[Rfam]
RNA sequence: AUCAGCUGGGGAUCUUGUUAAAAUGCAGAUUCUGAUUAAACGACGACGAUGAUGGGGGAAGUCUGAGAUUUUGCAUUUUUAACAAGCUCCCAGGUGAUACCCA
Numbered sequence: 001a002u003c004a005g006c007u008g009g010g011g012a013u014c015u016u017g018u019u020a021a022a023a024u025g026c027a028g029a030u031u032c033u034g035a036u037u038a039a040a041c042g043a044c045g046a047c048g049a050u051g052a053u054g055g056g057g058g059a060a061g062u063c064u065g066a067g068a069u070u071u072u073g074c075a076u077u078u079u080u081a082a083c084a085a086g087c088u089c090c091c092a093g094g095u096g097a098u099a100c101c102c103a
Base pairs, nucleotide, nucleotide: 003096004095009090010089011088014086015085016084017083018082019081020080021078022077023076025074026073027072028071029070031068032067033066
The record is a 103-nucleotide RNA from Loxodonta africana, which matches "mir-544 microRNA precursor family" in Rfam. Taxonomically the source falls in Loxodonta (Eukaryota, Chordata, Dipnotetrapodomorpha, Tetrapoda). The literature on the family includes a 2010 paper in Genes Dev by Chiang et al., "Mammalian microRNAs: experimental evaluation of novel and previously annotated genes". Its family is annotated with miRNA-mediated post-transcriptional gene silencing and RISC complex in the Gene Ontology. Rfam 15.1 lists 10,750 matches to the family in 132 species.